Notes: The family of this 86-nucleotide sequence from Acanthosepion pharaonis is "Selenocysteine transfer RNA".
[Rfam]
RNA sequence: GCUCGGAUGAACCUCAGUGGUCUAUGGUGCAGGCUUCAAAUCUGUAGCUGAGUAACGUCAUAGGGGUUCGAUUCCACCUUCCGGCC
Numbered sequence: 001g002c003u004c005g006g007a008u009g010a011a012c013c014u015c016a017g018u019g020g021u022c023u024a025u026g027g028u029g030c031a032g033g034c035u036u037c038a039a040a041u042c043u044g045u046a047g048c049u050g051a052g053u054a055a056c057g058u059c060a061u062a063g064g065g066g067u068u069c070g071a072u073u074c075c076a077c078c079u080u081c082c083g084g085c086c
Stems, first nucleotide, its partner, number of pairs: 001086001003084005009078001012027002016023002028046006049060003063077001065075002

Taxonomically the source falls in Acanthosepion (Eukaryota, Opisthokonta, Spiralia, Sepiina). Pairs were carried over by alignment from the consensus structure, which is taken from published work. The family has 109 seed sequences and 4,211 matches in Rfam 15.1.